[Rfam]
A member of the RNA family "Plastid-rps12 3UTR RNA" from Coptis chinensis, 96 nucleotides long. Lineage of the source: Eukaryota > Streptophytina > Magnoliopsida > Mesangiospermae > Coptis. A reference for the family is Richter et al. (2023), "Retrograde signaling in plants: A critical review focusing on the GUN pathway and beyond", Plant Commun. Plastid rpl20 is a non-coding RNA (ncRNA) recognised in plastids. By type it is a cis-regulatory element. Rfam 15.1 lists 1,710 matches to the family in 1,426 species.

RNA sequence: GGUUUCCAUUGGUGCAAAUCCAAUCACCUCAAUUGGAGAUGAGAAGCAAUUCCCGGUGGUAGCAAAUGGUUAUCCAUUAAAGCGGGGAAAUAGUAU
Numbered sequence: 001g002g003u004u005u006c007c008a009u010u011g012g013u014g015c016a017a018a019u020c021c022a023a024u025c026a027c028c029u030c031a032a033u034u035g036g037a038g039a040u041g042a043g044a045a046g047c048a049a050u051u052c053c054c055g056g057u058g059g060u061a062g063c064a065a066a067u068g069g070u071u072a073u074c075c076a077u078u079a080a081a082g083c084g085g086g087g088a089a090a091u092a093g094u095a096u
Base pairs, nucleotide, nucleotide: 009023010022011021012020052086053085054084055083056077057076058074059073060072061071062070063069